[Rfam]
RNA sequence: UAGUGUCACAGCUCUUUUAUAAUUUGUCUAGCAGGUUUUCUGGUUCUUCACAAGAACCCCU
Dot-bracket structure: .................................((((((..((....))...))))))...
About this RNA
U7 small nuclear RNA: a 61-nucleotide sequence from Theropithecus gelada. For this family Rfam cites "U7 snRNAs: a computational survey" (Marz et al., Genomics Proteomics Bioinformatics, 2007). Taxonomically the source falls in Theropithecus (Eukaryota, Metazoa, Eutheria, Primates).